RNA sequence: CAGACUGUUGUCAAUGAUGAAACACAGUUAGGCUGAAGUUAAUGAUUUAAAUCAGUUCCUUCGUCACUACCACUGAGACAACAGAUGG
Dot-bracket structure: (.(.((((((((................................................................)))))))).).)